[Rfam]
RNA: Small nucleolar RNA Z247
Organism: Eragrostis curvula
RNA sequence: AGGCUCGAUGACGAGGAGCUUGUCUCCUAUAUCCUGGCGGGCCUCGACAUGGACUUCAACUCGGUCGUCUCGGCGGUGGCGGCUCGUGUUGAACCCAUCUCUGUGGGAGAGCUCCUUGGGCAACUCAUUGCCUAUGAGU
Numbered sequence: 001a002g003g004c005u006c007g008a009u010g011a012c013g014a015g016g017a018g019c020u021u022g023u024c025u026c027c028u029a030u031a032u033c034c035u036g037g038c039g040g041g042c043c044u045c046g047a048c049a050u051g052g053a054c055u056u057c058a059a060c061u062c063g064g065u066c067g068u069c070u071c072g073g074c075g076g077u078g079g080c081g082g083c084u085c086g087u088g089u090u091g092a093a094c095c096c097a098u099c100u101c102u103g104u105g106g107g108a109g110a111g112c113u114c115c116u117u118g119g120g121c122a123a124c125u126c127a128u129u130g131c132c133u134a135u136g137a138g139u
Base pairs, nucleotide, nucleotide: 004138005137006136007135094107095106096105097104098103